[Rfam]
RNA sequence: GGGCGAUUAGCUCAGCGGGAGAGCGUUCCCUUCACACGGGAGAGGUCGAAGGUUCGAUCCCUUCAUCGCCCA
Dot-bracket structure: (((((((..((((.......)))).(((((.......))))).....(((((.......)))))))))))).
RNA: tRNA
Organism: Rhodovulum sp. PH10